[Rfam]
RNA sequence: GGAUCCCUGCUUUUGGUUAAGUAGCUUUAUGGCGGGAUUCUGACACUCAUACAGCUAGAUAACCAAAGACAGGGGCCG
Numbered sequence: 001g002g003a004u005c006c007c008u009g010c011u012u013u014u015g016g017u018u019a020a021g022u023a024g025c026u027u028u029a030u031g032g033c034g035g036g037a038u039u040c041u042g043a044c045a046c047u048c049a050u051a052c053a054g055c056u057a058g059a060u061a062a063c064c065a066a067a068g069a070c071a072g073g074g075g076c077c078g
Stems, first nucleotide, its partner, number of pairs: 002077001004075002007072003011068009022057005028051005